A member of the RNA family "RNase MRP" from Pterulicium gracile, 387 nucleotides long.
[Rfam]
RNA sequence: CCGCCGUGCGAAGAAUCGCUUUCGCAGCUCACCUACAGGAAGCUCCUCGCUUCUUCUCUUUCGCUGUGGGGAAAGUCCCCGGAGAUGCAGAGCACGGAUCUCCAUGCAAUGGAAAGCAACCACCUCUAAGCUCGGUGGUCGUGGAAGAUUCGGUGGGAGAUUCACUAGCCAUGGCUGGGCGUCACGGCUCGCUCUCAUCCACUCUGCGGCUUGCUCUGCGGCUGACUGUCCUUCAAAGCCCGAGUUGCGAAGAUACGAGCGACUCGUCAGCCUGGGCAGUCGGUUCAAGGACAAGUCACGGUUACUCAUUGACAAAGUUAUGCGAUUCGACGCGUCUCUGCUUUGGCAGCUUGCGAAGAACUCAAUGGGGCUCACUCUCGCUCGGUG
Numbered sequence: 001c002c003g004c005c006g007u008g009c010g011a012a013g014a015a016u017c018g019c020u021u022u023c024g025c026a027g028c029u030c031a032c033c034u035a036c037a038g039g040a041a042g043c044u045c046c047u048c049g050c051u052u053c054u055u056c057u058c059u060u061u062c063g064c065u066g067u068g069g070g071g072a073a074a075g076u077c078c079c080c081g082g083a084g085a086u087g088c089a090g091a092g093c094a095c096g097g098a099u100c101u102c103c104a105u106g107c108a109a110u111g112g113a114a115a116g117c118a119a120c121c122a123c124c125u126c127u128a129a130g131c132u133c134g135g136u137g138g139u140c141g142u143g144g145a146a147g148a149u150u151c152g153g154u155g156g157g158a159g160a161u162u163c164a165c166u167a168g169c170c171a172u173g174g175c176u177g178g179g180c181g182u183c184a185c186g187g188c189u190c191g192c193u194c195u196c197a198u199c200c201a202c203u204c205u206g207c208g209g210c211u212u213g214c215u216c217u218g219c220g221g222c223u224g225a226c227u228g229u230c231c232u233u234c235a236a237a238g239c240c241c242g243a244g245u246u247g248c249g250a251a252g253a254u255a256c257g258a259g260c261g262a263c264u265c266g267u268c269a270g271c272c273u274g275g276g277c278a279g280u281c282g283g284u285u286c287a288a289g290g291a292c293a294a295g296u297c298a299c300g301g302u303u304a305c306u307c308a309u310u311g312a313c314a315a316a317g318u319u320a321u322g323c324g325a326u327u328c329g330a331c332g333c334g335u336c337u338c339u340g341c342u343u344u345g346g347c348a349g350c351u352u353g354c355g356a357a358g359a360a361c362u363c364a365a366u367g368g369g370g371c372u373c374a375c376u377c378u379c380g381c382u383c384g385g386u387g
Stems, first nucleotide, its partner, number of pairs: 002387005008381004014327006022069007039053005074372002077370004228292006237285004245279004261272001263270002331355004

Pairs were carried over by alignment from the consensus structure, which is taken from published work. Lineage of the source: Eukaryota > Opisthokonta > Fungi > Pterulaceae > Pterulicium. It is annotated as a ribozyme.